Overview
mir-184 microRNA precursor family: an 81-nucleotide RNA from Amphibalanus amphitrite. The base pairs follow the family's consensus structure, which was predicted with PFOLD. For this family Rfam cites "The developmental miRNA profiles of zebrafish as determined by small RNA cloning" (Chen et al., Genes Dev, 2005). The match comes from Rfam's covariance-model search (62 bits).
RNA sequence: UUUCCCACGUCUCCUUGUCAUUCUGCGAGCCAGUGUAUCGUUUGACGACUGGACGGAGAACUGAUAAGGGCUGGUGGGAAA
Numbered sequence: 001u002u003u004c005c006c007a008c009g010u011c012u013c014c015u016u017g018u019c020a021u022u023c024u025g026c027g028a029g030c031c032a033g034u035g036u037a038u039c040g041u042u043u044g045a046c047g048a049c050u051g052g053a054c055g056g057a058g059a060a061c062u063g064a065u066a067a068g069g070g071c072u073g074g075u076g077g078g079a080a081a
Stems, first nucleotide, its partner, number of pairs: 012070009021060004026055001030052002